[Rfam]
RNA: dfrA-dnaX RNA
RNA sequence: AUGCCUUGUGAUAAAACUAUAUUAAUUUCAUCGUAAUUACCAUAAAAAGAUAAUCAAAAGAGAAUUACGAUAUAAU
Numbered sequence: 001a002u003g004c005c006u007u008g009u010g011a012u013a014a015a016a017c018u019a020u021a022u023u024a025a026u027u028u029c030a031u032c033g034u035a036a037u038u039a040c041c042a043u044a045a046a047a048a049g050a051u052a053a054u055c056a057a058a059a060g061a062g063a064a065u066u067a068c069g070a071u072a073u074a075a076u
Stems, first nucleotide, its partner, number of pairs: 030071008